This 95-nucleotide sequence from a Polyangiaceae bacterium belongs to the Rfam family "Selenocysteine transfer RNA".
NCBI's taxonomy places the organism under Bacteria, Pseudomonadati, Myxococcota, Polyangiales, Polyangiaceae.

RNA sequence: GGAAGCGCAUCCGUUUCUGGCGAUCGGCCCGGUCUUCAAAACCGGUGUGGGGCACCCCACGGUGUCCUGGGCAGGUUCGAUUCCUGUGCGCUUCC
Numbered sequence: 001g002g003a004a005g006c007g008c009a010u011c012c013g014u015u016u017c018u019g020g021c022g023a024u025c026g027g028c029c030c031g032g033u034c035u036u037c038a039a040a041a042c043c044g045g046u047g048u049g050g051g052g053c054a055c056c057c058c059a060c061g062g063u064g065u066c067c068u069g070g071g072c073a074g075g076u077u078c079g080a081u082u083c084c085u086g087u088g089c090g091c092u093u094c095c
Stems, first nucleotide, its partner, number of pairs: 001095009011027003015023001017022001029045005048069007072086004